Shown here is a 31-nucleotide sequence, a member of the family "L31-Firmicutes ribosomal protein leader". Clan: Ribosomal Protein L31 Leader clan. Rfam's curators put it in the seed alignment. It is annotated as a cis-regulatory leader.
RNA sequence: CUAUGGCUUGUAAUAGUCAUGGCUGAAGGAG
Numbered sequence: 001c002u003a004u005g006g007c008u009u010g011u012a013a014u015a016g017u018c019a020u021g022g023c024u025g026a027a028g029g030a031g
Stems, first nucleotide, its partner, number of pairs: 001022008